A member of the RNA family "MIR7486 microRNA precursor family" from Gossypium raimondii, 87 nucleotides long.
Rfam links the family to the GO terms RISC complex and miRNA-mediated post-transcriptional gene silencing.
A search with the family's covariance model found it, with a score of 87 bits.
NCBI's taxonomy places the organism under Eukaryota, Streptophytina, Tracheophyta, rosids, Gossypium.
[Rfam]
Nucleotides: 087
Stems, first nucleotide, its partner, number of pairs: 001086021023064011035052002038049001040047002
Number, partner (000 for none) and nucleotide at each position: 001086c002085u003084c004083a005082a006081g007080g008079g009078a010077g011076c012075g013074c014073u015072u016071u017070g018069u019068c020067c021066a022000c023064g024063u025062g026061g027060a028059c029058a030057g031056a032055a033054a034000g035052u036051g037000c038049g039000c040047c041046c042000u043000c044000a045000a046041g047040g048000a049038u050000a051036c052035a053000a054033u055032u056031u057030c058029u059028g060027u061026c062025c063024a064023c065000g066021u067020g068019g069018a070017c071016a072015a073014a074013g075012c076011g077010c078009u079008u080007c081006c082005u083004u084003g085002a086001g087000u